[Rfam]
RNA sequence: UGGGUCGGUGAGACGGUCGCGUCGCGUUCGCUUCGGCGGGCGUGCCGAGGAACGUCCGGGCUGCACAGAGGAGAACGGUGGGUAACGCCCACCCGGGGCAACCCGCGAGAAAGUGCAACAGAAAGCAGACCGACCGCUCCGGGCAACCGGAGCGGCACGGGUGAAACGGUGGUGUAAGAGACCACCGGCGUCCGUGGUGACACGGGCGGCCAGGUAAACCUCGUUCGCAGCAAGGCCAGACAGCAGGCGUUGAAGCUCCUCGCCGAGUCUGCGGGUAGGCCGCUAGAGGGUGUCGGCAACGGCACUCCGAGAGAGAUGACCGUCACCGCCGGUUUCGGCCGGCGGGACAGAACCCGGCGUAUGAUCCGGCCCAUUCU
Number, nucleotide and partner (000 for none) at each position: 001u373002g372003g371004g370005u369006c368007g367008g366009u000010g000011a362012g324013a323014c322015g321016g320017u319018c318019g000020c047021g046022u000023c044024g043025c042026g041027u040028u039029c038030g037031c000032u000033u000034c000035g000036g000037c030038g029039g028040g027041c026042g025043u024044g023045c000046c021047g020048a000049g000050g000051a000052a360053c359054g358055u000056c357057c356058g355059g354060g353061c230062u229063g228064c227065a000066c000067a000068g261069a260070g259071g258072a000073g226074a225075a224076c223077g222078g092079u091080g090081g089082g088083u000084a000085a000086c000087g000088c082089c081090c080091a079092c078093c107094c105095g104096g103097g102098g000099c000100a000101a000102c097103c096104c095105g094106c000107g093108a221109g220110a000111a000112a000113g219114u218115g215116c214117a000118a000119c000120a000121g000122a000123a000124a000125g000126c000127a000128g000129a000130c160131c159132g000133a000134c155135c154136g153137c152138u151139c150140c149141g148142g000143g000144c000145a000146a000147c000148c141149g140150g139151a138152g137153c136154g135155g134156c000157a000158c000159g131160g130161g000162u000163g000164a000165a000166a000167c000168g186169g185170u184171g183172g182173u181174g000175u000176a000177a000178g000179a000180g000181a173182c172183c171184a170185c169186c168187g000188g210189c208190g207191u206192c205193c204194g203195u202196g201197g000198u000199g000200a000201c196202a195203c194204g193205g192206g191207c190208g189209g000210c188211c000212a000213g000214g116215u115216a000217a000218a114219c113220c109221u108222c077223g076224u075225u074226c073227g064228c063229a062230g061231c000232a000233a000234g281235g280236c279237c278238a000239g000240a000241c000242a000243g272244c271245a270246g269247g268248c267249g000250u000251u000252g000253a000254a000255g263256c262257u000258c071259c070260u069261c068262g256263c255264c000265g000266a000267g248268u247269c246270u245271g244272c243273g000274g000275g000276u000277a000278g237279g236280c235281c234282g000283c000284u000285a000286g000287a000288g307289g306290g305291u304292g303293u302294c301295g300296g000297c000298a000299a000300c295301g294302g293303c292304a291305c290306u289307c288308c000309g000310a000311g000312a000313g000314a000315g000316a000317u000318g018319a017320c016321c015322g014323u013324c012325a000326c000327c000328g000329c000330c000331g000332g000333u000334u000335u000336c000337g000338g000339c000340c000341g000342g000343c000344g000345g000346g000347a000348c000349a000350g000351a000352a000353c060354c059355c058356g057357g056358c054359g053360u052361a000362u011363g000364a000365u000366c008367c007368g006369g005370c004371c003372c002373a001374u000375u000376c000377u000
Rfam assigns this 377-nucleotide sequence from Leucobacter sp. Ag1 to the family "Bacterial RNase P class A". The family's RNA type in Rfam is ribozyme.